mir-6 microRNA precursor family: a 75-nucleotide sequence from Drosophila busckii. Rfam 15.1 lists 58 matches to the family in 23 species. Gene Ontology terms of the family: miRNA-mediated post-transcriptional gene silencing and RISC complex. About the family: This family consists of the microRNA (miRNA) precursor mir-6 which appears to be Drosophila specific. Animal miRNAs are transcribed as ~70nt precursors and subsequently processed by the Dicer enzyme to give a ~22nt product. A search with the family's covariance model found it, with a score of 81 bits. The source organism's lineage runs through Eukaryota, Mandibulata, Pancrustacea, Diptera and Dorsilopha. A reference for the family is Mourelatos et al. (2002), "miRNPs: a novel class of ribonucleoproteins containing numerous microRNAs", Genes Dev.
RNA sequence: AAGAGAAGGGAACGUCUGCUGUUGAUGUAGUUCAUAAUAAAACAAUUUAUAUCACAGUGGCUGUUCUUUUUUGUU
Numbered sequence: 001a002a003g004a005g006a007a008g009g010g011a012a013c014g015u016c017u018g019c020u021g022u023u024g025a026u027g028u029a030g031u032u033c034a035u036a037a038u039a040a041a042a043c044a045a046u047u048u049a050u051a052u053c054a055c056a057g058u059g060g061c062u063g064u065u066c067u068u069u070u071u072u073g074u075u
Base pairs, nucleotide, nucleotide: 004072005071007069008068009067010066011065012064013063016060017059018058019057020056021055023054024053026051027050028049029048
Dot-bracket structure: ...((.(((((((..((((((.((.((((..................)))).))))))))..))))))).))...